[Rfam]
RNA sequence: UCCCAAUGAGGAGAUAAGGCAACAUGUCUUACCAUCUGUCUUGGCUCCAGAACCUGCAAAGGUUGAACCCACUGGAGCUGGCAGAGUGGAGAAGAGAAAACGCUACUUCAGAAGGAGCUGUCUGAUGGGAU
Numbered sequence: 001u002c003c004c005a006a007u008g009a010g011g012a013g014a015u016a017a018g019g020c021a022a023c024a025u026g027u028c029u030u031a032c033c034a035u036c037u038g039u040c041u042u043g044g045c046u047c048c049a050g051a052a053c054c055u056g057c058a059a060a061g062g063u064u065g066a067a068c069c070c071a072c073u074g075g076a077g078c079u080g081g082c083a084g085a086g087u088g089g090a091g092a093a094g095a096g097a098a099a100a101c102g103c104u105a106c107u108u109c110a111g112a113a114g115g116a117g118c119u120g121u122c123u124g125a126u127g128g129g130a131u
Stems, first nucleotide, its partner, number of pairs: 001130004
Overview:
Small nucleolar RNA SNORD22: a 131-nucleotide RNA sequence from Podarcis lilfordi. By type it is a C/D-box small nucleolar RNA. Rfam 15.1 lists 1,081 matches to the family in 414 species. The family's consensus secondary structure was predicted with PFOLD. The match comes from Rfam's covariance-model search (101 bits).